[Rfam]
Shown here is a 425-nucleotide RNA sequence from Coemansia biformis, a member of the family "RNase MRP". The organism belongs to Coemansia, within Eukaryota. Rfam's curators write: RNase MRP is an enzymatically active ribonucleoprotein with two distinct roles in eukaryotes. For this family Rfam cites "Secondary structure of RNase MRP RNA as predicted by phylogenetic comparison" (Schmitt et al., FASEB J, 1993). A search with the family's covariance model found it, with a score of 61 bits.
Nucleotides: 425
Stems, first nucleotide, its partner, number of pairs: 002425007011416001015361003019357001025086007042072006091410002094408004106118004175197006199332003206327001209324002214321001221320001223318002298313001364395009
Number, partner (000 for none) and nucleotide at each position: 001000u002425g003424u004423a005422u006421u007420u008419g009000u010000u011416g012000u013000a014000c015361a016360u017359c018000c019357c020000a021000u022000c023000u024000g025086u026085c027084g028083a029082a030081g031080c032000c033000u034000c035000a036000c037000a038000c039000a040000c041000a042072a043071a044070g045069u046068a047067g048000u049000a050000u051000g052000u053000c054000g055000u056000c057000c058000g059000c060000g061000g062000c063000c064000u065000g066000c067047c068046u069045a070044c071043u072042u073000c074000a075000c076000c077000c078000g079000g080031g081030c082029u083028u084027u085026g086025g087000g088000g089000a090000a091410a092409g093000u094408c095407c096406c097405c098000g099000g100000a101000c102000g103000c104000a105000g106118g107117g108116c109115a110000g111000a112000a113000a114000g115109u116108g117107c118106c119000g120000c121000c122000u123000g124000u125000a126000a127000u128000c129000a130000g131000g132000u133000a134000g135000u136000g137000g138000c139000u140000c141000c142000c143000g144000g145000c146000u147000c148000c149000u150000g151000g152000u153000g154000c155000g156000g157000c158000u159000c160000g161000g162000c163000a164000g165000a166000c167000a168000g169000g170000g171000c172000c173000c174000a175197g176196g177195g178194c179193g180192c181000c182000u183000c184000u185000u186000a187000g188000c189000c190000g191000c192180g193179u194178g195177c196176c197175c198000g199332c200331c201330u202000c203000c204000g205000u206327c207000g208000c209324g210323c211000a212000a213000u214321g215000c216000g217000g218000g219000a220000a221320c222000u223318g224317c225000c226000a227000a228000g229000a230000c231000g232000c233000c234000g235000g236000c237000g238000g239000c240000g241000g242000g243000g244000g245000g246000c247000c248000c249000c250000c251000c252000c253000c254000u255000g256000u257000c258000g259000c260000c261000g262000g263000a264000a265000g266000a267000g268000c269000u270000u271000c272000u273000g274000c275000g276000g277000g278000g279000c280000g281000g282000g283000c284000g285000g286000g287000c288000g289000g290000c291000g292000a293000g294000u295000u296000c297000u298313g299000g300000g301000c302000u303000c304000c305000u306000u307000c308000c309000u310000c311000u312000g313298c314000c315000c316000a317224g318223c319000c320221g321214u322000u323210g324209c325000c326000g327206g328000u329000g330201g331200g332199g333000g334000u335000c336000u337000g338000u339000u340000c341000g342000u343000c344000a345000u346000a347000g348000c349000a350000c351000a352000g353000u354000u355000a356000u357019g358000c359017g360016g361015u362000u363000g364395g365394c366393c367392g368391c369390c370389g371388g372387g373000u374000g375000u376000c377000c378000a379000c380000u381000g382000g383000g384000c385000c386000c387372u388371c389370c390369g391368g392367c393366g394365g395364c396000u397000a398000c399000c400000u401000c402000a403000a404000c405097g406096g407095g408094g409092c410091u411000c412000a413000c414000u415000u416011c417000u418000c419008c420007a421006g422005g423004u424003a425002u